Background:
The record is a 93-nucleotide RNA sequence from Theobroma cacao, which matches "Small nucleolar RNA snoR8a" in Rfam. It is annotated as a C/D-box small nucleolar RNA.
RNA sequence: AAGUUAGCGACGAUUAUAAAAGUAAUUCCUCGUUUUCAUUUGCUUAAUUUGGAUAUGACAAACAUCUUAUUACAACCAUAGAAUCUGAACUAC
Numbered sequence: 001a002a003g004u005u006a007g008c009g010a011c012g013a014u015u016a017u018a019a020a021a022g023u024a025a026u027u028c029c030u031c032g033u034u035u036u037c038a039u040u041u042g043c044u045u046a047a048u049u050u051g052g053a054u055a056u057g058a059c060a061a062a063c064a065u066c067u068u069a070u071u072a073c074a075a076c077c078a079u080a081g082a083a084u085c086u087g088a089a090c091u092a093c
Base pairs, nucleotide, nucleotide: 003093004092006091007090
The source organism's lineage runs through Eukaryota, Streptophytina, Mesangiospermae, rosids and Theobroma. The family's consensus secondary structure was predicted with WAR.